[Rfam]
The record is a 105-nucleotide RNA sequence from Rothia aerolata, which matches "SAM riboswitch aptamer (S box leader)" in Rfam.
The match comes from Rfam's covariance-model search (52 bits).
RNA sequence: UAUCUAUCAAGAGCGGCUAAGAGAACUGGCUCGUUGACGCCGCAGCAACCUCGCCGUGCCCCUCGUGGGCAGGGGCUAAGGUGCUUCCGCCAGUAUCGAUAGAAC
Numbered sequence: 001u002a003u004c005u006a007u008c009a010a011g012a013g014c015g016g017c018u019a020a021g022a023g024a025a026c027u028g029g030c031u032c033g034u035u036g037a038c039g040c041c042g043c044a045g046c047a048a049c050c051u052c053g054c055c056g057u058g059c060c061c062c063u064c065g066u067g068g069g070c071a072g073g074g075g076c077u078a079a080g081g082u083g084c085u086u087c088c089g090c091c092a093g094u095a096u097c098g099a100u101a102g103a104a105c
Base pairs, nucleotide, nucleotide: 003103004102005101006100007099008098013043014042015041016040017039021032022031023030026093027092028091029090044085045084046083047082049081050080053076054075055074089097